[Rfam]
RNA sequence: UUAUCCUUUAAGUUAGUCCCGUGAGGCUAAAAAGGAAGUGACUGCUUAUAAAACAUUGUUUUAGAUUAUUGUAAGCUUUUAAACAAUAAUUCAUGAUAGACCGGUGUAUGCUCACUCCUGCCUCCAACGGGCAGGAGUUUUUUUGU
Numbered sequence: 001u002u003a004u005c006c007u008u009u010a011a012g013u014u015a016g017u018c019c020c021g022u023g024a025g026g027c028u029a030a031a032a033a034g035g036a037a038g039u040g041a042c043u044g045c046u047u048a049u050a051a052a053a054c055a056u057u058g059u060u061u062u063a064g065a066u067u068a069u070u071g072u073a074a075g076c077u078u079u080u081a082a083a084c085a086a087u088a089a090u091u092c093a094u095g096a097u098a099g100a101c102c103g104g105u106g107u108a109u110g111c112u113c114a115c116u117c118c119u120g121c122c123u124c125c126a127a128c129g130g131g132c133a134g135g136a137g138u139u140u141u142u143u144u145g146u
Base pairs, nucleotide, nucleotide: 004036005035006034007033008032009031013030014029015028016027017026018025044076045075046074047073048072049071050070051069053067056064057063114138115137116136117135118134119133120132121131122130123129
PyrR binding site: a 146-nucleotide RNA from Tetragenococcus muriaticus. The source organism's lineage runs through Bacteria, Bacillati, Bacillota, Tetragenococcus and Tetragenococcus muriaticus. A search with the family's covariance model found it, with a score of 60 bits. The family's RNA type in Rfam is cis-regulatory element.